[Rfam]
RNA sequence: UGCGCCUUUAAAUCAGUCCCGUGAGGCUGGCAAGGUAACGUGAAUCGAGGUUCGCGAACAUUUAGGAUGGAAUCCGUCUGCUGGGCGGGGGCUUUUCUAUGCGCGCGGACAUGUCCUCUGAUUAACAACGGAACUCACUCCUUGCCUGUUUCAGGCAAGGAGUUUUUGGU
Numbered sequence: 001u002g003c004g005c006c007u008u009u010a011a012a013u014c015a016g017u018c019c020c021g022u023g024a025g026g027c028u029g030g031c032a033a034g035g036u037a038a039c040g041u042g043a044a045u046c047g048a049g050g051u052u053c054g055c056g057a058a059c060a061u062u063u064a065g066g067a068u069g070g071a072a073u074c075c076g077u078c079u080g081c082u083g084g085g086c087g088g089g090g091g092c093u094u095u096u097c098u099a100u101g102c103g104c105g106c107g108g109a110c111a112u113g114u115c116c117u118c119u120g121a122u123u124a125a126c127a128a129c130g131g132a133a134c135u136c137a138c139u140c141c142u143u144g145c146c147u148g149u150u151u152c153a154g155g156c157a158a159g160g161a162g163u164u165u166u167u168g169g170u
Base pairs, nucleotide, nucleotide: 004036005035006034007033008032013030014029015028016027017026018025065097066096067095069093070092073089074088075087076086077085078084137163138162139161140160141159142158143157144156145155146154147153148152
Dot-bracket structure: ...(((((....((((((......)))))).)))))............................(((.((..((((((.....))))))..)).))).......................................((((((((((((...)))))))))))).......